[Rfam]
RNA sequence: AAGGAGGAUGUGAGAGUUAGCAUUCCUGCCUGAUACCAUCUUCCUAGAUUUAAUCUGCCAUCUUUAGCUCGCUGAACUAUUAGAUGGUUUUGCUGGCCUUAGUCGGCAGAAUAUUGCA
Numbered sequence: 001a002a003g004g005a006g007g008a009u010g011u012g013a014g015a016g017u018u019a020g021c022a023u024u025c026c027u028g029c030c031u032g033a034u035a036c037c038a039u040c041u042u043c044c045u046a047g048a049u050u051u052a053a054u055c056u057g058c059c060a061u062c063u064u065u066a067g068c069u070c071g072c073u074g075a076a077c078u079a080u081u082a083g084a085u086g087g088u089u090u091u092g093c094u095g096g097c098c099u100u101a102g103u104c105g106g107c108a109g110a111a112u113a114u115u116g117c118a
Stems, first nucleotide, its partner, number of pairs: 001031001003029001005027001006025006056111001058109001067097003071093002074090001076088003
This 118-nucleotide RNA sequence from Oryza brachyantha belongs to the Rfam family "Small nucleolar RNA snoR104". The literature on the family includes a 2002 paper in Curr Biol by Marker et al., "Experimental RNomics: identification of 140 candidates for small non-messenger RNAs in the plant Arabidopsis thaliana". The family's consensus secondary structure was predicted with WAR. It is annotated as an H/ACA-box small nucleolar RNA.